[Rfam]
RNA sequence: AUGCACUAGGCGGGGUGUUAGCAGUACCUUGUAACCUGUAAUCUGCUAUAGCAGGGCUGAAUUCCCAAGUUAGAUUUUCAAGGGGUGUAGCCGACUUUUGUAAGUGGUGUUGACGAGUGGGUCCUUACGCAAUAGAGCUUUACGAAUCUGGUCAGGUCUUGACGGAAGCAGCCAUAAGUAAAAUACUCUAUGUGCCGUAAGAUUGCUUGCUUUGAGCUAACUGCAAGGGCAUCGUGCAUUUCUUGUUAAGCGACCUUGGGUGUGCUU
Numbered sequence: 001a002u003g004c005a006c007u008a009g010g011c012g013g014g015g016u017g018u019u020a021g022c023a024g025u026a027c028c029u030u031g032u033a034a035c036c037u038g039u040a041a042u043c044u045g046c047u048a049u050a051g052c053a054g055g056g057c058u059g060a061a062u063u064c065c066c067a068a069g070u071u072a073g074a075u076u077u078u079c080a081a082g083g084g085g086u087g088u089a090g091c092c093g094a095c096u097u098u099u100g101u102a103a104g105u106g107g108u109g110u111u112g113a114c115g116a117g118u119g120g121g122u123c124c125u126u127a128c129g130c131a132a133u134a135g136a137g138c139u140u141u142a143c144g145a146a147u148c149u150g151g152u153c154a155g156g157u158c159u160u161g162a163c164g165g166a167a168g169c170a171g172c173c174a175u176a177a178g179u180a181a182a183a184u185a186c187u188c189u190a191u192g193u194g195c196c197g198u199a200a201g202a203u204u205g206c207u208u209g210c211u212u213u214g215a216g217c218u219a220a221c222u223g224c225a226a227g228g229g230c231a232u233c234g235u236g237c238a239u240u241u242c243u244u245g246u247u248a249a250g251c252g253a254c255c256u257u258g259g260g261u262g263u264g265c266u267u
Stems, first nucleotide, its partner, number of pairs: 001267001003265004009058003012030008035055005064260006073251001075249002080244010093233002096228006104221002106218003115212008124201006130192002133190005139182005149174004157166003
RNA: Bacterial large signal recognition particle RNA
Organism: Parvimonas micra